[Rfam]
RNA sequence: CUGAUACAAUGAUGACCGCAUAGUUCAGCAGAAAUGCCGUGAAGAAUAAACAGCAUUGUCUUUCGCUCCUAGCUGACGUAUCAG
Numbered sequence: 001c002u003g004a005u006a007c008a009a010u011g012a013u014g015a016c017c018g019c020a021u022a023g024u025u026c027a028g029c030a031g032a033a034a035u036g037c038c039g040u041g042a043a044g045a046a047u048a049a050a051c052a053g054c055a056u057u058g059u060c061u062u063u064c065g066c067u068c069c070u071a072g073c074u075g076a077c078g079u080a081u082c083a084g
Stems, first nucleotide, its partner, number of pairs: 004081004
RNA: Small nucleolar RNA snR60/Z15/Z230/Z193/J17
Organism: Megalops atlanticus